[Rfam]
Nucleotides: 102
Stems, first nucleotide, its partner, number of pairs: 018088008029049001031047005058078007
Number, partner (000 for none) and nucleotide at each position: 001000a002000u003000u004000c005000c006000a007000a008000u009000a010000a011000a012000a013000u014000a015000u016000g017000g018088u019087u020086u021085u022084c023083a024082u025081a026000u027000a028000a029049u030000a031047g032046c033045a034044a035043g036000a037000a038000u039000a040000g041000g042000g043035c044034u045033u046032g047031c048000g049029a050000g051000u052000u053000u054000c055000u056000a057000c058078c059077g060076g061075u062074u063073u064072a065000c066000c067000g068000u069000a070000a071000a072064u073063a074062a075061a076060c077059c078058g079000a080000c081025u082024a083023u084022g085021a086020a087019a088018a089000u090000a091000a092000c093000u094000g095000a096000u097000c098000u099000g100000a101000a102000u